[Rfam]
The record is a 237-nucleotide RNA from Peribacillus deserti, which matches "Group II catalytic intron D1-D4-6" in Rfam. Group II introns are found in rRNA, tRNA and mRNA of organelles in fungi, plants and protists, and also in mRNA in bacteria.
RNA sequence: GGAUUCCCGUCGAGUAAGAACUAGCCAUUCGCUCGUAGCGAGUCUUGGAGGGCUGAAGGUAACUUUAGCUUUUAAGCGUAGACAGUUAGGUAGCAGGCCGAAAGCCAGCUGGUUGAAGGGAUAGAGCUCCAUAAUGUUUGUAAAUCGAGAGGGCUGAUGCCUUACAUACAGCAGAAAGCUAUAUCUUUAUCCUUCAUUAAAGGCAAGAAGAUAGAACCUCUCUGGAGUUAGAGACCU
Numbered sequence: 001g002g003a004u005u006c007c008c009g010u011c012g013a014g015u016a017a018g019a020a021c022u023a024g025c026c027a028u029u030c031g032c033u034c035g036u037a038g039c040g041a042g043u044c045u046u047g048g049a050g051g052g053c054u055g056a057a058g059g060u061a062a063c064u065u066u067a068g069c070u071u072u073u074a075a076g077c078g079u080a081g082a083c084a085g086u087u088a089g090g091u092a093g094c095a096g097g098c099c100g101a102a103a104g105c106c107a108g109c110u111g112g113u114u115g116a117a118g119g120g121a122u123a124g125a126g127c128u129c130c131a132u133a134a135u136g137u138u139u140g141u142a143a144a145u146c147g148a149g150a151g152g153g154c155u156g157a158u159g160c161c162u163u164a165c166a167u168a169c170a171g172c173a174g175a176a177a178g179c180u181a182u183a184u185c186u187u188u189a190u191c192c193u194u195c196a197u198u199a200a201a202g203g204c205a206a207g208a209a210g211a212u213a214g215a216a217c218c219u220c221u222c223u224g225g226a227g228u229u230a231g232a233g234a235c236c237u
Base pairs, nucleotide, nucleotide: 011035012034013033014032018030019029020028022206024204025203038086039085042083043082044081045080046078047077048073049072050071051070052069053068054067055066056065057064058063124229126228127227128226129225130224131223147222148221149220150219151218152217153179154178155177158173159172160171184216186214188213189212192210193209194208195207
The organism belongs to Peribacillus, within Bacteria.